[Rfam]
RNA sequence: UUUGUUCUCUCUCCCUUAAAGGUUUCUGGUACAGCAUCUCUAGAUUGUGCAAAAGCCUGAAGCCUUUGGGGAGAGGGAACAAAAU
Numbered sequence: 001u002u003u004g005u006u007c008u009c010u011c012u013c014c015c016u017u018a019a020a021g022g023u024u025u026c027u028g029g030u031a032c033a034g035c036a037u038c039u040c041u042a043g044a045u046u047g048u049g050c051a052a053a054a055g056c057c058u059g060a061a062g063c064c065u066u067u068g069g070g071g072a073g074a075g076g077g078a079a080c081a082a083a084a085u
Base pairs, nucleotide, nucleotide: 006078007077008076009075010074011073012072013071014070015069017068018067019066020065021064022063023062024061025060026059
RNA: MIR473 microRNA precursor family
Organism: Sesamum indicum